[Rfam]
The family of this 94-nucleotide RNA from Modestobacter versicolor is "TPP riboswitch aptamer (THI element)". Vitamin B(1) in its active form thiamin pyrophosphate (TPP) is an essential coenzyme that is synthesised by coupling of pyrimidine and thiazole moieties in bacteria. The organism belongs to Modestobacter, within Bacteria. The family's consensus secondary structure is taken from published work.
RNA sequence: CUGGCCGGCACGGGGUGUCCCACCGGGGACUGAGAUCACACCCGUCGAACCUGCUCCAGCUGACACUGGCGAAGGGAUGGCCCGGCGAUGGACG
Numbered sequence: 001c002u003g004g005c006c007g008g009c010a011c012g013g014g015g016u017g018u019c020c021c022a023c024c025g026g027g028g029a030c031u032g033a034g035a036u037c038a039c040a041c042c043c044g045u046c047g048a049a050c051c052u053g054c055u056c057c058a059g060c061u062g063a064c065a066c067u068g069g070c071g072a073a074g075g076g077a078u079g080g081c082c083c084g085g086c087g088a089u090g091g092a093c094g
Stems, first nucleotide, its partner, number of pairs: 007081001009079002011044004016038001017030005050075003056069004